[Rfam]
RNA sequence: GCCUGCAUUCGAAAGUGAUCGCGGCCUGGCCCGUGGCCCGGUCAUCGAUAGUGCAGGGAGAGGAAGGCCGGCAGCUUUCCCGUGUUUGGGGCGGCCGUCCCCCACCUCCCAGACCCUGUGGCUGCCGGACA
Number, nucleotide and partner (000 for none) at each position: 001g000002c057003c056004u055005g054006c053007a052008u051009u050010c000011g000012a000013a000014a000015g045016u044017g043018a042019u041020c040021g039022c000023g038024g037025c036026c035027u000028g000029g000030c000031c000032c000033g000034u000035g026036g025037c024038c023039c021040g020041g019042u018043c017044a016045u015046c000047g000048a000049u000050a009051g008052u007053g006054c005055a004056g003057g002058g000059a000060g000061a000062g000063g000064a000065a000066g000067g000068c128069c127070g126071g125072c124073a123074g122075c121076u000077u000078u000079c000080c000081c000082g000083u000084g114085u113086u112087u111088g110089g108090g107091g106092c000093g105094g000095c000096c000097g000098u000099c000100c000101c000102c000103c000104a000105c093106c091107u090108c089109c000110c088111a087112g086113a085114c084115c000116c000117u000118g000119u000120g000121g075122c074123u073124g072125c071126c070127g069128g068129a000130c000131a000
RNA: Small nucleolar RNA SNORA71